A member of the RNA family "U7 small nuclear RNA" from Saimiri boliviensis, 63 nucleotides long. Rfam's curators write: Animal histone pre-mRNAs are spliced by a different mechanism than nuclear pre-mRNAs and self-splicing introns. The source organism's lineage runs through Eukaryota, Metazoa, Haplorrhini, Saimiri and Saimiri boliviensis.
RNA sequence: AAGUGUUACAGCUCUUUUAGAGUUUGUCUAGCAUGCUUUCCGGUUUUAUGCCAGCAAGCCCCC
Numbered sequence: 001a002a003g004u005g006u007u008a009c010a011g012c013u014c015u016u017u018u019a020g021a022g023u024u025u026g027u028c029u030a031g032c033a034u035g036c037u038u039u040c041c042g043g044u045u046u047u048a049u050g051c052c053a054g055c056a057a058g059c060c061c062c063c
Stems, first nucleotide, its partner, number of pairs: 035059004040054001042052003